[Rfam]
RNA sequence: GUAGAUUUAUCAUUAUUGAUUUUCUUUUCGUUUUUAAAAAUAUUGGAGGGGAGGCGGGACAGGAAUUUCUCGCCUCUUCUCUGUUCUCAUUGGGGGGAGGGAGGAAUCACUCCCCCUCCCAAAGUUGGGGAAUAAUGUUAUUAUUCCCUAA
Numbered sequence: 001g002u003a004g005a006u007u008u009a010u011c012a013u014u015a016u017u018g019a020u021u022u023u024c025u026u027u028u029c030g031u032u033u034u035u036a037a038a039a040a041u042a043u044u045g046g047a048g049g050g051g052a053g054g055c056g057g058g059a060c061a062g063g064a065a066u067u068u069c070u071c072g073c074c075u076c077u078u079c080u081c082u083g084u085u086c087u088c089a090u091u092g093g094g095g096g097g098a099g100g101g102a103g104g105a106a107u108c109a110c111u112c113c114c115c116c117u118c119c120c121a122a123a124g125u126u127g128g129g130g131a132a133u134a135a136u137g138u139u140a141u142u143a144u145u146c147c148c149u150a151a
Base pairs, nucleotide, nucleotide: 003145004144011137012136013135014134015133017132020054021053022052023051024050025049026048027047028046029045030041031040032039033038056087057086058085059084060083061082062081063080092117093116094115095114096113097112098111099110101108102107118128119127
The record is a 151-nucleotide RNA, which matches "Molybdenum/Tungsten riboswitch aptamer (Moco RNA motif)" in Rfam. On this family, see Regulski et al., Mol Microbiol 2008: "in molybdenum cofactor and tungsten cofactor metabolism". It scores 36 bits against the family's covariance model.